[Rfam]
RNA sequence: GACACAUAACCCACUGUUCCUUUUUGACUUCUUUUUUCUCCAAUAACGUUUGGAGGCACGCUCGUUUACGGAAAUAAGUCAAAAACGAACAGAAAGCCUCCCCAUGGAGGCUUUUUUUAU
Numbered sequence: 001g002a003c004a005c006a007u008a009a010c011c012c013a014c015u016g017u018u019c020c021u022u023u024u025u026g027a028c029u030u031c032u033u034u035u036u037u038c039u040c041c042a043a044u045a046a047c048g049u050u051u052g053g054a055g056g057c058a059c060g061c062u063c064g065u066u067u068a069c070g071g072a073a074a075u076a077a078g079u080c081a082a083a084a085a086c087g088a089a090c091a092g093a094a095a096g097c098c099u100c101c102c103c104a105u106g107g108a109g110g111c112u113u114u115u116u117u118u119a120u
Base pairs, nucleotide, nucleotide: 016090017089018088019087021085022084023083024082025081026080027079028078029077030076032074033073034072036070039054040053041052042051055063056062093114094113095112096111097110098109099108100107101106
RNA: Phenylalanine leader peptide
Organism: Vibrio sp. V28_P6S34P95